Shown here is a 266-nucleotide RNA from Thermoclostridium caenicola, a member of the family "Bacterial large signal recognition particle RNA". A reference for the family is Rosenblad et al. (2003), "SRPDB: Signal Recognition Particle Database", Nucleic Acids Res. Rfam classes the family as a non-coding RNA gene.
RNA sequence: CCGUGCUAGACGGGGAGGUAGCGGUGCCCUGUAUCCGCAAUCCGCUAUAGCGGAGUCGAAUUCCUGCCCCCGGCUUGCAAAUGUAAGGUCAGUUAUGUGUCGGAGUACGAUGAAGAUCGGGUCUUGCGCAAUCCGGAACCGUGAACCCCGUCAGGUCCGGGAGGAAGCAGCGGUAAGCGGAGCACCGGGUGUGCCGCGAGCGUGCCUGGUCCGAGUACGAUGCACAUGGUACGCUUGUAUUUGCAUUGCCAAAGGCAGGUGCACGG
Numbered sequence: 001c002c003g004u005g006c007u008a009g010a011c012g013g014g015g016a017g018g019u020a021g022c023g024g025u026g027c028c029c030u031g032u033a034u035c036c037g038c039a040a041u042c043c044g045c046u047a048u049a050g051c052g053g054a055g056u057c058g059a060a061u062u063c064c065u066g067c068c069c070c071c072g073g074c075u076u077g078c079a080a081a082u083g084u085a086a087g088g089u090c091a092g093u094u095a096u097g098u099g100u101c102g103g104a105g106u107a108c109g110a111u112g113a114a115g116a117u118c119g120g121g122u123c124u125u126g127c128g129c130a131a132u133c134c135g136g137a138a139c140c141g142u143g144a145a146c147c148c149c150g151u152c153a154g155g156u157c158c159g160g161g162a163g164g165a166a167g168c169a170g171c172g173g174u175a176a177g178c179g180g181a182g183c184a185c186c187g188g189g190u191g192u193g194c195c196g197c198g199a200g201c202g203u204g205c206c207u208g209g210u211c212c213g214a215g216u217a218c219g220a221u222g223c224a225c226a227u228g229g230u231a232c233g234c235u236u237g238u239a240u241u242u243g244c245a246u247u248g249c250c251a252a253a254g255g256c257a258g259g260u261g262c263a264c265g266g
Stems, first nucleotide, its partner, number of pairs: 001266006009057003012030004017025001019023001034054005063259006072250003078243010092230001095227006103221001106217003115211008123200006129191002132189005139180004148173004156165003
Source information:
The base pairs follow the family's consensus structure, which is taken from published work. The signal recognition particle (SRP) is a universally conserved ribonucleoprotein involved in the co-translational targeting of proteins to membranes. It scores 197 bits against the family's covariance model.